The record is a 73-nucleotide RNA sequence from Euglena gracilis, which matches "tRNA" in Rfam.
[Rfam]
RNA sequence: GCGGGUAUAGCUCAGUUGGUAGAGCGUGGUCCUUCCAAGUCCAAUGUUGCGUGUUCGAAUCACGUUACCCGCU
Numbered sequence: 001g002c003g004g005g006u007a008u009a010g011c012u013c014a015g016u017u018g019g020u021a022g023a024g025c026g027u028g029g030u031c032c033u034u035c036c037a038a039g040u041c042c043a044a045u046g047u048u049g050c051g052u053g054u055u056c057g058a059a060u061c062a063c064g065u066u067a068c069c070c071g072c073u
Stems, first nucleotide, its partner, number of pairs: 001072007010025004027043003031039001049065005

About this RNA: Rfam classes the family as a transfer RNA. Taxonomically the source falls in Euglena (Eukaryota, Discoba, Euglenida, Euglenophyceae). Rfam links the family to the GO term triplet codon-amino acid adaptor activity.